Annotation
A member of the RNA family "Eukaryotic large subunit ribosomal RNA" from Drosophila yakuba, 304 nucleotides of a longer RNA. The base pairs follow the family's consensus structure, which is taken from published work. Lineage of the source: Eukaryota > Opisthokonta > Pancrustacea > Insecta > Sophophora. Rfam's curators put it in the seed alignment. Its family is annotated with ribosome and structural constituent of ribosome in the Gene Ontology.
RNA sequence: AAGUCUAACAUAUGUGCAAGUUAUUGGGAUAUAAACCUAAUAGCGUAAUUAACUUGACUACUAAUGGGAUUAGUUUUUUAACUAUCUAUAGCUAAUUAACACAAUCCCGGGGCGUAGUUAUGUAUAAUGUAUAUUUAUAUUAUUUAUGCCUCUAAGUGGAACGUACCUUGAGCAUAUAUGAUGAGACCCGAAACAUGGUGAACUAUACUUGAUCAGGUUGAAGUCAGGGAAAACCCUGAUGGAAGACCGAAACAGUUCUAACGUGCAAUCGUACCGACCAAUCGAACCAUCUAGUAGCUGGUUC
Numbered sequence: 001a002a003g004u005c006u007a008a009c010a011u012a013u014g015u016g017c018a019a020g021u022u023a024u025u026g027g028g029a030u031a032u033a034a035a036c037c038u039a040a041u042a043g044c045g046u047a048a049u050u051a052a053c054u055u056g057a058c059u060a061c062u063a064a065u066g067g068g069a070u071u072a073g074u075u076u077u078u079u080a081a082c083u084a085u086c087u088a089u090a091g092c093u094a095a096u097u098a099a100c101a102c103a104a105u106c107c108c109g110g111g112g113c114g115u116a117g118u119u120a121u122g123u124a125u126a127a128u129g130u131a132u133a134u135u136u137a138u139a140u141u142a143u144u145u146a147u148g149c150c151u152c153u154a155a156g157u158g159g160a161a162c163g164u165a166c167c168u169u170g171a172g173c174a175u176a177u178a179u180g181a182u183g184a185g186a187c188c189c190g191a192a193a194c195a196u197g198g199u200g201a202a203c204u205a206u207a208c209u210u211g212a213u214c215a216g217g218u219u220g221a222a223g224u225c226a227g228g229g230a231a232a233a234c235c236c237u238g239a240u241g242g243a244a245g246a247c248c249g250a251a252a253c254a255g256u257u258c259u260a261a262c263g264u265g266c267a268a269u270c271g272u273a274c275c276g277a278c279c280a281a282u283c284g285a286a287c288c289a290u291c292u293a294g295u296a297g298c299u300g301g302u303u304c
Base pairs, nucleotide, nucleotide: 006183007182009180010179011178012177013176014175015174016173017172020044021043022042025039026038027037028036030034048055066108067107068106069105070104073100074099075098110167111166112164113163114162115160121154122153187301188300190298195290196289197288198287199286216248217247218246219245223240224239225238226237227236228235229234253276255274257273258271261269